[Rfam]
RNA sequence: CUCUUAUCCAGAGAGGCGGAGGGACUAGGCCCUGAGAUGCCCGGCAACCAGCGUGUUUUACGCAAAGGUGCUAAUUCCUACAGAUUCUAAUUAAGAUCUGAAAGAUAAGGG
Numbered sequence: 001c002u003c004u005u006a007u008c009c010a011g012a013g014a015g016g017c018g019g020a021g022g023g024a025c026u027a028g029g030c031c032c033u034g035a036g037a038u039g040c041c042c043g044g045c046a047a048c049c050a051g052c053g054u055g056u057u058u059u060a061c062g063c064a065a066a067g068g069u070g071c072u073a074a075u076u077c078c079u080a081c082a083g084a085u086u087c088u089a090a091u092u093a094a095g096a097u098c099u100g101a102a103a104g105a106u107a108a109g110g111g
Base pairs, nucleotide, nucleotide: 001111002110003109004108005107006106007105008104013042015041016040017039021032022031023030026080027079028078029077043072044071045070046069048068049067051063052062053061076103081100082099083098084097085096086095